[Rfam]
RNA sequence: GGGAUAUUAGCUCAGUUGGUAGAGCAGCUGACUCUUAAUCAGCGGGUCGUAGGUUCGAUCCCUACAUAUCCCA
Numbered sequence: 001g002g003g004a005u006a007u008u009a010g011c012u013c014a015g016u017u018g019g020u021a022g023a024g025c026a027g028c029u030g031a032c033u034c035u036u037a038a039u040c041a042g043c044g045g046g047u048c049g050u051a052g053g054u055u056c057g058a059u060c061c062c063u064a065c066a067u068a069u070c071c072c073a
Stems, first nucleotide, its partner, number of pairs: 001072007010025004027043005049065005
RNA: tRNA
Organism: Oceanobacillus zhaokaii